[Rfam]
This 68-nucleotide RNA sequence from Elysia chlorotica belongs to the Rfam family "mir-29 microRNA precursor family". Rfam's curators write: This family represents the microRNA (miRNA) precursors mir-29. Pairs were carried over by alignment from the consensus structure, which was predicted with PFOLD. The literature on the family includes a 2001 paper in Cell by Ambros, "microRNAs: tiny regulators with great potential". It scores 58 bits against the family's covariance model.
RNA sequence: AGAAACCUGAUCUCGCGUGGUGCAUAGAUUACCAUGGCUCGUCUAGCACCAUUUGAAAUCAGUUUUCU
Numbered sequence: 001a002g003a004a005a006c007c008u009g010a011u012c013u014c015g016c017g018u019g020g021u022g023c024a025u026a027g028a029u030u031a032c033c034a035u036g037g038c039u040c041g042u043c044u045a046g047c048a049c050c051a052u053u054u055g056a057a058a059u060c061a062g063u064u065u066u067c068u
Stems, first nucleotide, its partner, number of pairs: 001068004005063001007062005013056003017052006025045004